[Rfam]
RNA sequence: GGCAGCUUUGAAUGAUGUUACUUCUUAUUUAUUCGAGAAGACAUCAGUUAAAACUGUGCU
Number, nucleotide and partner (000 for none) at each position: 001g000002g057003c056004a055005g054006c000007u052008u051009u050010g049011a000012a000013u046014g045015a044016u043017g042018u041019u000020a000021c040022u039023u038024c037025u036026u035027a000028u000029u000030u000031a000032u000033u000034c000035g026036a025037g024038a023039a022040g021041a018042c017043a016044u015045c014046a013047g000048u000049u010050a009051a008052a007053a000054c005055u004056g003057u002058g000059c000060u000

Overview:
Shown here is a 60-nucleotide RNA from Clupea harengus, a member of the family "mir-723 microRNA precursor family". The source organism's lineage runs through Eukaryota, Metazoa, Bilateria, Teleostei and Clupea. The match comes from Rfam's covariance-model search (78 bits).